[Rfam]
RNA sequence: UAAUAUAGUUGUCAGAUUCCGCAGACAGCUGGCGGCAGUUUUGCCGUAAAGGGAGCACUCCCUGCCCGCCGAGGAAAGACGCUUUUAUGUAAGAUGUUUUGUCUUCAAAGCUCUUUUCGCGGUAUGCGGAAAGAGCUUUUUUCAUGAACAU
Numbered sequence: 001u002a003a004u005a006u007a008g009u010u011g012u013c014a015g016a017u018u019c020c021g022c023a024g025a026c027a028g029c030u031g032g033c034g035g036c037a038g039u040u041u042u043g044c045c046g047u048a049a050a051g052g053g054a055g056c057a058c059u060c061c062c063u064g065c066c067c068g069c070c071g072a073g074g075a076a077a078g079a080c081g082c083u084u085u086u087a088u089g090u091a092a093g094a095u096g097u098u099u100u101g102u103c104u105u106c107a108a109a110g111c112u113c114u115u116u117u118c119g120c121g122g123u124a125u126g127c128g129g130a131a132a133g134a135g136c137u138u139u140u141u142u143c144a145u146g147a148a149c150a151u
Stems, first nucleotide, its partner, number of pairs: 028069002031066003034045003110136010